[Rfam]
RNA sequence: AAAAUAAAGUAGAAACUAUCCGUUUCUCACCUUACAUGACGACAAGUUACUAAGGUUUAUGAUGAAGGCAAUGAACGGAUAGUGAAUACUAUUCGUUCUUUUUUUUGGAG
Number, nucleotide and partner (000 for none) at each position: 001a000002a000003a000004a000005u000006a000007a000008a000009g000010u000011a027012g026013a025014a024015a023016c022017u000018a000019u000020c000021c000022g016023u015024u014025u013026c012027u011028c000029a056030c055031c054032u000033u000034a000035c000036a000037u049038g048039a047040c046041g000042a000043c000044a000045a000046g040047u039048u038049a037050c000051u000052a000053a000054g031055g030056u029057u000058u000059a000060u000061g000062a000063u000064g000065a000066a000067g000068g000069c000070a000071a000072u000073g000074a097075a096076c095077g094078g093079a092080u091081a090082g089083u088084g000085a000086a000087u000088a083089c082090u081091a080092u079093u078094c077095g076096u075097u074098c000099u000100u000101u000102u000103u000104u000105u000106u000107g000108g000109a000110g000